[Rfam]
RNA sequence: CAACAUGAGAGUUUGAUCCUGGCUCAGAACGAACGCUGGCGGCAGGCUUAACACAUGCAAGUCGAACGCACCGCAAGGUGAGUGGCAGACGGGUGAGUAACACGUGGGAACGUACCCUUUGGUUCGGAAUAACCCUGGGAAACUAGGGCUAAUACCGGAUACGGCCGAGAGGCGAAAGGUUUACCGCCGGAGGAACGGCCCGCGUCCGAUUAGCUUGUUGGUGAGGUAACGGCUCACCAAGGCGACGAUCGGUAGCUGGUCUGAGAGGAUGACCAGCCACAUUGGGACUGAGACACGGCCCAAACUCCUACGGGAGGCAGCAGUGGGGAAUAUUGGACAAUGGGCGCAAGCCUGAUCCAGCCAUGCCGCGUGAGUGAUGACGGCCUUAGGGUUGUAAAGCUCUUUUACCUGGGAAGAUAAUGACGGUACCAGGAGAAUAAGCCCCGGCUAACUUCGUGCCAGCAGCCGCGGUAAUACGAAGGGGGCUAGCGUUGUUCGGAUUUACUG
Dot-bracket structure: ........(((((.......))))).((((.((((((.(((((((((....(((.(((..(((..((.((((....)))).)))))......(((......(((((((..((...(((((((.((((.....((((((....))))))......)))).....(((....)))....((....)).)))))))..)).)))))))(((....(((..((((((((.......)))))))))))......)))..((((((((....))))...))))))).(((((............))))).((((....))))...)))))).).....(.(((...(((((....))))).)))).)).))))))..((((......((((....)))).....)))).....(((((...(.......)....))))).......(((((......(((((.....((....)).......)))))))))).))))))))))..........
Numbered sequence: 001c002a003a004c005a006u007g008a009g010a011g012u013u014u015g016a017u018c019c020u021g022g023c024u025c026a027g028a029a030c031g032a033a034c035g036c037u038g039g040c041g042g043c044a045g046g047c048u049u050a051a052c053a054c055a056u057g058c059a060a061g062u063c064g065a066a067c068g069c070a071c072c073g074c075a076a077g078g079u080g081a082g083u084g085g086c087a088g089a090c091g092g093g094u095g096a097g098u099a100a101c102a103c104g105u106g107g108g109a110a111c112g113u114a115c116c117c118u119u120u121g122g123u124u125c126g127g128a129a130u131a132a133c134c135c136u137g138g139g140a141a142a143c144u145a146g147g148g149c150u151a152a153u154a155c156c157g158g159a160u161a162c163g164g165c166c167g168a169g170a171g172g173c174g175a176a177a178g179g180u181u182u183a184c185c186g187c188c189g190g191a192g193g194a195a196c197g198g199c200c201c202g203c204g205u206c207c208g209a210u211u212a213g214c215u216u217g218u219u220g221g222u223g224a225g226g227u228a229a230c231g232g233c234u235c236a237c238c239a240a241g242g243c244g245a246c247g248a249u250c251g252g253u254a255g256c257u258g259g260u261c262u263g264a265g266a267g268g269a270u271g272a273c274c275a276g277c278c279a280c281a282u283u284g285g286g287a288c289u290g291a292g293a294c295a296c297g298g299c300c301c302a303a304a305c306u307c308c309u310a311c312g313g314g315a316g317g318c319a320g321c322a323g324u325g326g327g328g329a330a331u332a333u334u335g336g337a338c339a340a341u342g343g344g345c346g347c348a349a350g351c352c353u354g355a356u357c358c359a360g361c362c363a364u365g366c367c368g369c370g371u372g373a374g375u376g377a378u379g380a381c382g383g384c385c386u387u388a389g390g391g392u393u394g395u396a397a398a399g400c401u402c403u404u405u406u407a408c409c410u411g412g413g414a415a416g417a418u419a420a421u422g423a424c425g426g427u428a429c430c431a432g433g434a435g436a437a438u439a440a441g442c443c444c445c446g447g448c449u450a451a452c453u454u455c456g457u458g459c460c461a462g463c464a465g466c467c468g469c470g471g472u473a474a475u476a477c478g479a480a481g482g483g484g485g486c487u488a489g490c491g492u493u494g495u496u497c498g499g500a501u502u503u504a505c506u507g
Stems, first nucleotide, its partner, number of pairs: 009025005027497004032493006039369006045362002047327001052325003056322003061086003066083002069080004093280003102205007111197002116193007124158004133148006164173003178185002206252003213243003218240008255277004259270004282303005305316004333359001335358003341354005372402004382393004408433005416424001441486005452481005462469002